SAM-I/IV (S-adenosyl methionine) riboswitch aptamer: an 87-nucleotide RNA sequence.
Rfam links the family to the GO terms S-adenosylmethionine metabolic process and regulation of gene expression.
It is one of the family's seed sequences.
Rfam 15.1 lists 567 matches to the family in 508 species.
RNA sequence: UUAUUGCAUAGAGAGAGGGAUACCUCAGCAACCUAGUUGCCAACUAAGGUGCUUUUUGAUGUGGUUUUACAACAAAAAAUGGCGUUC
Numbered sequence: 001u002u003a004u005u006g007c008a009u010a011g012a013g014a015g016a017g018g019g020a021u022a023c024c025u026c027a028g029c030a031a032c033c034u035a036g037u038u039g040c041c042a043a044c045u046a047a048g049g050u051g052c053u054u055u056u057u058g059a060u061g062u063g064g065u066u067u068u069a070c071a072a073c074a075a076a077a078a079a080u081g082g083c084g085u086u087c
Base pairs, nucleotide, nucleotide: 006062007061008060009059015026016025017024018023027053028052029051032049033048034047035045036044037043039085040084064073065072066071